[Rfam]
The family of this 120-nucleotide RNA sequence from Nannospalax galili is "Small nucleolar RNA SNORA26". Lineage of the source: Eukaryota > Chordata > Tetrapoda > Rodentia > Nannospalax. For this family Rfam cites "RNomics: an experimental approach that identifies 201 candidates for novel, small, non-messenger RNAs in mouse" (Huttenhofer et al., EMBO J, 2001). Pairs were carried over by alignment from the consensus structure, which was predicted with RNAalifold. It scores 108 bits against the family's covariance model. From the family's description: The snoRNA HBI-6 belong to the H/ACA family of snoRNAs, guiding the pseudouridylation of position U4522 if the 28S rRNA. HBI-6 is the human orthologue of mouse MBI-6 snoRNA. By type it is an H/ACA-box small nucleolar RNA.
RNA sequence: GUGCCCUUUUAAGGUUGACAAGGUACUUUAAAAGGCUAACACAGAAGGGUAAAGGAACUCUCCAUAAAAACCCAGAGAGACUGUACAUCUCCUCUUUGGAUCCUGUCUGGAGUCACACAG
Number, nucleotide and partner (000 for none) at each position: 001g000002u051003g050004c049005c048006c047007u046008u045009u044010u043011a000012a000013g000014g040015u039016u038017g037018a000019c035020a000021a000022g000023g000024u000025a000026c000027u000028u000029u000030a000031a000032a000033a000034g000035g019036c000037u017038a016039a015040c014041a000042c000043a010044g009045a008046a007047g006048g005049g004050u003051a002052a000053a000054g000055g000056a000057a000058c000059u000060c112061u111062c110063c109064a108065u000066a000067a000068a000069a000070a000071c000072c099073c098074a097075g096076a095077g091078a090079g089080a000081c000082u087083g000084u000085a000086c000087a082088u000089c079090u078091c077092c000093u000094c000095u076096u075097u074098g073099g072100a000101u000102c000103c000104u000105g000106u000107c000108u064109g063110g062111a061112g060113u000114c000115a000116c000117a000118c000119a000120g000